[Rfam]
RNA sequence: AAAAAUAAGGGGGUGUGGGGGAAGGAUUCCUCUGCCUAUUUAAAGAAAGGUGUUCAGAUUGCGAGAGCAAUCGUCGAAGGGAAC
Numbered sequence: 001a002a003a004a005a006u007a008a009g010g011g012g013g014u015g016u017g018g019g020g021g022a023a024g025g026a027u028u029c030c031u032c033u034g035c036c037u038a039u040u041u042a043a044a045g046a047a048a049g050g051u052g053u054u055c056a057g058a059u060u061g062c063g064a065g066a067g068c069a070a071u072c073g074u075c076g077a078a079g080g081g082a083a084c
Stems, first nucleotide, its partner, number of pairs: 015035008057072005
Shown here is an 84-nucleotide RNA sequence from Anaeromicrobium sediminis, a member of the family "Clostridiales-2 RNA". The base pairs follow the family's consensus structure, which is taken from published work. Rfam 15.1 lists 285 matches to the family in 26 species.